[Rfam]
RNA sequence: ACUUACCACAGCAUUUCGUAUGUACCAUGUAAAGAUUUUUAUUAUUAAUUCUUUAUUUUUAGGUGUACCAUUCCUAGCAAAACCUAUUAUACGGGAGAGGGAUUUUAGUUGGUAGGUCCUCCUGUGAGGGAAUCCAACACUACCCAGUCGUACGGACGGCUGGGUGUCUUUCGAAGAUUUCCCCUCUUCCACAAAA
Numbered sequence: 001a002c003u004u005a006c007c008a009c010a011g012c013a014u015u016u017c018g019u020a021u022g023u024a025c026c027a028u029g030u031a032a033a034g035a036u037u038u039u040u041a042u043u044a045u046u047a048a049u050u051c052u053u054u055a056u057u058u059u060u061a062g063g064u065g066u067a068c069c070a071u072u073c074c075u076a077g078c079a080a081a082a083c084c085u086a087u088u089a090u091a092c093g094g095g096a097g098a099g100g101g102a103u104u105u106u107a108g109u110u111g112g113u114a115g116g117u118c119c120u121c122c123u124g125u126g127a128g129g130g131a132a133u134c135c136a137a138c139a140c141u142a143c144c145c146a147g148u149c150g151u152a153c154g155g156a157c158g159g160c161u162g163g164g165u166g167u168c169u170u171u172c173g174a175a176g177a178u179u180u181c182c183c184c185u186c187u188u189c190c191a192c193a194a195a196a
Stems, first nucleotide, its partner, number of pairs: 030055006059195002062192001093190005099183003108138005117130005140166001142165005
This 196-nucleotide RNA from Agrilus planipennis belongs to the Rfam family "R2 RNA element". By type it is a cis-regulatory element. About the family: This family represents the 3' UTR region of the R2 retrotransposable element. This family is known to interact with the R2-encoded reverse transcriptase in a reaction known as target primed reverse transcription (TPRT). A search with the family's covariance model found it, with a score of 49 bits. Its family is annotated with regulation of reverse transcription in the Gene Ontology.